[Rfam]
RNA sequence: AAGUACGACUUCGGUAUACUUUGUGAGUUGGUCUUUCGUAAAAGCCAAUUCGCAAAGUAUACUGAAGUCGUACUU
Numbered sequence: 001a002a003g004u005a006c007g008a009c010u011u012c013g014g015u016a017u018a019c020u021u022u023g024u025g026a027g028u029u030g031g032u033c034u035u036u037c038g039u040a041a042a043a044g045c046c047a048a049u050u051c052g053c054a055a056a057g058u059a060u061a062c063u064g065a066a067g068u069c070g071u072a073c074u075u
Base pairs, nucleotide, nucleotide: 001075002074003073004072005071006070008068009067010066011065012064013063014062015061016060017059018058019057020056021055022054023053024052025051026050028048029047030046031045033044034043035042036041
Background
Rfam assigns this 75-nucleotide RNA sequence from Macaca nemestrina to the family "mir-4798 microRNA precursor family". The base pairs follow the family's consensus structure, which was predicted with RNAalifold. A search with the family's covariance model found it, with a score of 77 bits.